[Rfam]
RNA sequence: UCCGGCACGGACGCCGGAAAAACCGUAGGUAAUCGACGUUUUUGCAAAGCCGGGAGGAUUUGCAAAAACUCGCGUUAAAAAUCGGACAGGGAAGUCCGAUUUUUAAACCCUU
Number, nucleotide and partner (000 for none) at each position: 001u018002c017003c016004g015005g014006c013007a000008c000009g000010g000011a000012c000013g006014c005015c004016g003017g002018a001019a000020a000021a000022a000023c000024c000025g000026u000027a000028g000029g000030u000031a000032a000033u000034c072035g071036a070037c000038g069039u068040u067041u066042u065043u064044g063045c062046a061047a060048a059049g000050c000051c000052g000053g000054g000055a000056g000057g000058a000059u048060u047061u046062g045063c044064a043065a042066a041067a040068a039069c038070u036071c035072g034073c000074g108075u107076u105077a104078a103079a102080a101081a100082u099083c098084g097085g096086a095087c094088a000089g000090g000091g000092a000093a000094g087095u086096c085097c084098g083099a082100u081101u080102u079103u078104u077105a076106a000107a075108c074109c000110c000111u000112u000
The record is a 112-nucleotide RNA from Treponema maltophilum, which matches "TD-2 RNA" in Rfam. On this family, see Weinberg et al., Nucleic Acids Res 2007: "Identification of 22 candidate structured RNAs in bacteria using the CMfinder comparative genomics pipeline". Rfam classes the family as a small RNA. Rfam 15.1 lists 310 matches to the family in 11 species. The organism belongs to Treponema maltophilum, within Bacteria. Clan: TD (Treponema denticola) motifs.